[Rfam]
RNA: mir-5316 microRNA precursor family
RNA sequence: CGACCACAUGCAGGCUCGCGAAAAUGUUCUGGUUGGCAUUGAUUAAAUAAUUUGUAACCGGGGCCCUUUCGACUAGCUUUCCGUGGUUU
Numbered sequence: 001c002g003a004c005c006a007c008a009u010g011c012a013g014g015c016u017c018g019c020g021a022a023a024a025u026g027u028u029c030u031g032g033u034u035g036g037c038a039u040u041g042a043u044u045a046a047a048u049a050a051u052u053u054g055u056a057a058c059c060g061g062g063g064c065c066c067u068u069u070c071g072a073c074u075a076g077c078u079u080u081c082c083g084u085g086g087u088u089u
Base pairs, nucleotide, nucleotide: 003087004086005085006084007083012079013078014077015076016075018073019071020070021069022068023067026064027063028062029061030060031059032058033057036055037054038053